[Rfam]
RNA sequence: UAGGGUCAAAACGGGAGCUUGGAAAAAGCCAGGCUGAGAGGGCGGAGAACUCUGCCGCCGACCGGUUAACCUGAUCUGGGUAAUGCCAGCGUAGGGAAGAUGAAGGGGAUUUGCU
Numbered sequence: 001u002a003g004g005g006u007c008a009a010a011a012c013g014g015g016a017g018c019u020u021g022g023a024a025a026a027a028g029c030c031a032g033g034c035u036g037a038g039a040g041g042g043c044g045g046a047g048a049a050c051u052c053u054g055c056c057g058c059c060g061a062c063c064g065g066u067u068a069a070c071c072u073g074a075u076c077u078g079g080g081u082a083a084u085g086c087c088a089g090c091g092u093a094g095g096g097a098a099g100a101u102g103a104a105g106g107g108g109a110u111u112u113g114c115u
Base pairs, nucleotide, nucleotide: 006103007102008101012064013063014062017034018033019032020031021030041059042058043057044056045055070095071094072093073092076089077088078087079086
RNA: TPP riboswitch aptamer (THI element)
Organism: Thermoactinomyces mirandus